[Rfam]
Shown here is a 108-nucleotide RNA sequence from Miscanthus lutarioriparius, a member of the family "Plant small nucleolar RNA R71". It is annotated as a C/D-box small nucleolar RNA. Pairs were carried over by alignment from the consensus structure, which was predicted with PFOLD.
RNA sequence: AUCCCAUGAUGAGGGCAUUCUGAUAUAUAGUCUUGGAAGCAUUCCCAAGCCUCAGAGACAGAUUCAUAAUGUUGUUGUUGAAGCUUGAAAUUCUUCCACACAGAGCAU
Numbered sequence: 001a002u003c004c005c006a007u008g009a010u011g012a013g014g015g016c017a018u019u020c021u022g023a024u025a026u027a028u029a030g031u032c033u034u035g036g037a038a039g040c041a042u043u044c045c046c047a048a049g050c051c052u053c054a055g056a057g058a059c060a061g062a063u064u065c066a067u068a069a070u071g072u073u074g075u076u077g078u079u080g081a082a083g084c085u086u087g088a089a090a091u092u093c094u095u096c097c098a099c100a101c102a103g104a105g106c107a108u
Stems, first nucleotide, its partner, number of pairs: 001108001004105001005103001057073002060070001